6S / SsrS RNA: a 195-nucleotide sequence from Salipaludibacillus neizhouensis.

RNA sequence: AGGGUCCUAUGUUGUACGUGUAACAACUUUUCAUUUUGAGCCAACACUUCGACCUUGGGAGUUUUCUGUUUCGCUAAUAAUAGCAUGCCUCAUACUUAUGUAAUAACUUAGAGGAAGUUAGAAUUAACGAACACGACACCCACCUGCUAUUGCAGGUUCAAAAUAAGGUAUUUUUACGGCAAACACGGGACUCUU
Numbered sequence: 001a002g003g004g005u006c007c008u009a010u011g012u013u014g015u016a017c018g019u020g021u022a023a024c025a026a027c028u029u030u031u032c033a034u035u036u037u038g039a040g041c042c043a044a045c046a047c048u049u050c051g052a053c054c055u056u057g058g059g060a061g062u063u064u065u066c067u068g069u070u071u072c073g074c075u076a077a078u079a080a081u082a083g084c085a086u087g088c089c090u091c092a093u094a095c096u097u098a099u100g101u102a103a104u105a106a107c108u109u110a111g112a113g114g115a116a117g118u119u120a121g122a123a124u125u126a127a128c129g130a131a132c133a134c135g136a137c138a139c140c141c142a143c144c145u146g147c148u149a150u151u152g153c154a155g156g157u158u159c160a161a162a163a164u165a166a167g168g169u170a171u172u173u174u175u176a177c178g179g180c181a182a183a184c185a186c187g188g189g190a191c192u193c194u195u
Stems, first nucleotide, its partner, number of pairs: 002193007010185002012182004017178003034163002037160006057141003061137003065133001071130003075126003083118002088114004
Background
It scores 89 bits against the family's covariance model. The base pairs follow the family's consensus structure, which is taken from published work.